[Rfam]
RNA sequence: CUCGUUUUUCGCGCGGGAGCUCGACCCGCGACUGCCGUGGUAGUCGAGUUCAUCGACUCCGUCCAGGCCCGGUUCGGGGUCGAGCCGAUCUGCCAGGUGCUCACCGAGCACGGCGUGCCGAUCGCCCCG
Numbered sequence: 001c002u003c004g005u006u007u008u009u010c011g012c013g014c015g016g017g018a019g020c021u022c023g024a025c026c027c028g029c030g031a032c033u034g035c036c037g038u039g040g041u042a043g044u045c046g047a048g049u050u051c052a053u054c055g056a057c058u059c060c061g062u063c064c065a066g067g068c069c070c071g072g073u074u075c076g077g078g079g080u081c082g083a084g085c086c087g088a089u090c091u092g093c094c095a096g097g098u099g100c101u102c103a104c105c106g107a108g109c110a111c112g113g114c115g116u117g118c119c120g121a122u123c124g125c126c127c128c129g
Base pairs, nucleotide, nucleotide: 013029014028015027016026017025075129076128077127078126079125086124087123089121090120092118093117